[Rfam]
RNA sequence: CGAGAGAUUCAUGGUUAAGGAACUAGGCAAACUGACCCCGUAACUUCGGGAUAAGGGGUCCCCGCUCCAGGGCGGGGCGCAGAGAAUAGGUCCAGGCAACUGUUUAACAAAAACACAGGGCUAUGCAAAGUUUAAAGACGAAGAAUAUAGCCUGACACCUGCCCGGUGCCGGAAGGUUAAGAGGAGAUGUCAUCGCAAGAGAAGCAUUGAAUUGAAGCCCCGGUAAACGGCGGCCGUAACUAUAACGGUCCUAAGGUAGCGAAAUUCCUUGUCGGGUAAGUUCCGACCUGCACGAAUGGUGUAAUGAUCUGGACACUGUCUCAACCAUGAGCUCG
Number, nucleotide and partner (000 for none) at each position: 001c335002g334003a333004g332005a000006g000007a000008u000009u330010c329011a328012u327013g326014g325015u324016u323017a000018a321019g320020g319021a000022a000023c000024u000025a000026g000027g000028c000029a000030a000031a000032c000033u000034g000035a059036c058037c057038c056039c055040g000041u000042a000043a000044c049045u000046u000047c000048g000049g044050g000051a000052u000053a000054a000055g039056g038057g037058g036059u035060c077061c076062c075063c074064g073065c072066u071067c000068c000069a000070g000071g066072g065073c064074g063075g062076g061077g060078c082079g000080c000081a000082g078083a000084g000085a000086a000087u000088a000089g000090g314091u313092c312093c311094a310095g309096g308097c306098a305099a000100c000101u115102g114103u113104u000105u000106a000107a000108c000109a000110a000111a000112a000113a103114c102115a101116c000117a000118g153119g152120g151121c150122u149123a148124u147125g146126c143127a000128a000129a000130g139131u138132u137133u000134a000135a000136a000137g132138a131139c130140g000141a000142a000143g126144a000145a000146u125147a124148u123149a122150g121151c120152c119153u118154g000155a000156c301157a300158c299159c298160u000161g231162c230163c229164c000165g000166g228167u227168g224169c223170c222171g221172g220173a000174a000175g219176g218177u217178u000179a000180a000181g213182a212183g000184g000185a000186g208187a207188u206189g205190u204191c000192a000193u200194c199195g000196c000197a000198a000199g194200a193201g000202a000203a000204g190205c189206a188207u187208u186209g000210a000211a000212u182213u181214g000215a000216a000217g177218c176219c175220c172221c171222g170223g169224u168225a000226a000227a167228c166229g163230g162231c161232g250233g249234c248235c247236g246237u245238a000239a000240c000241u000242a000243u000244a000245a237246c236247g235248g234249u233250c232251c255252u000253a000254a000255g251256g000257u000258a000259g000260c000261g288262a000263a000264a000265u000266u000267c000268c000269u000270u000271g287272u286273c285274g284275g283276g282277u000278a000279a000280g000281u000282u276283c275284c274285g273286a272287c271288c261289u000290g000291c000292a000293c000294g000295a000296a000297u000298g159299g158300u157301g156302u000303a000304a000305u098306g097307a000308u096309c095310u094311g093312g092313a091314c090315a000316c000317u000318g000319u020320c019321u018322c000323a016324a015325c014326c013327a012328u011329g010330a009331g000332c004333u003334c002335g001
This 335-nucleotide part of an RNA from Barnesiella sp. WM24 belongs to the Rfam family "Bacterial large subunit ribosomal RNA". It scores 2753 bits against the family's covariance model. Gene Ontology terms of the family: ribosome and structural constituent of ribosome. The base pairs follow the family's consensus structure, which is taken from published work. The source organism's lineage runs through Bacteria, Pseudomonadati, Bacteroidia, Bacteroidales and Barnesiella.